[Rfam]
RNA sequence: GGGCACCUUCGGGGGCCUUCAACAUCGCGGGGCUCUGCCCUGCUACGCACAACGGAAGACAGAAA
Numbered sequence: 001g002g003g004c005a006c007c008u009u010c011g012g013g014g015g016c017c018u019u020c021a022a023c024a025u026c027g028c029g030g031g032g033c034u035c036u037g038c039c040c041u042g043c044u045a046c047g048c049a050c051a052a053c054g055g056a057a058g059a060c061a062g063a064a065a
Stems, first nucleotide, its partner, number of pairs: 001018004006014003027043007
Rfam assigns this 65-nucleotide RNA sequence to the family "L2-Alphaproteobacteria ribosomal protein leader". The sequence is in the family's curated seed alignment.